[Rfam]
The record is an 84-nucleotide RNA sequence from Sparus aurata, which matches "Small nucleolar RNA SNORD35" in Rfam. On this family, see Nicoloso et al., J Mol Biol 1996: "Intron-encoded, antisense small nucleolar RNAs: the characterization of nine novel species points to their direct role as guides for the 2'-O-ribose methylation of rRNAs". By type it is a C/D-box small nucleolar RNA. It scores 68 bits against the family's covariance model. U35 is a C/D box snoRNA located in intron 6 of ribosomal protein L13A and intron 3 of ribosomal protein S11 in humans and at homologous positions in mouse and chicken ribosomal protein genes. U35 guides the methylation of 2'-O-ribose sites in 28S rRNA.

Nucleotides: 084
Base pairs, nucleotide, nucleotide: 001079002078003077004076
Number, partner (000 for none) and nucleotide at each position: 001079u002078g003077c004076a005000a006000a007000u008000g009000a010000u011000g012000u013000c014000u015000u016000u017000c018000u019000c020000a021000c022000g023000a024000u025000g026000g027000u028000c029000u030000u031000c032000c033000a034000a035000g036000c037000c038000u039000g040000c041000u042000a043000g044000g045000u046000u047000u048000u049000g050000a051000c052000g053000a054000u055000a056000a057000u058000g059000c060000c061000u062000u063000u064000u065000g066000g067000c068000a069000a070000u071000g072000c073000u074000g075000a076004u077003g078002c079001a080000g081000u082000c083000g084000a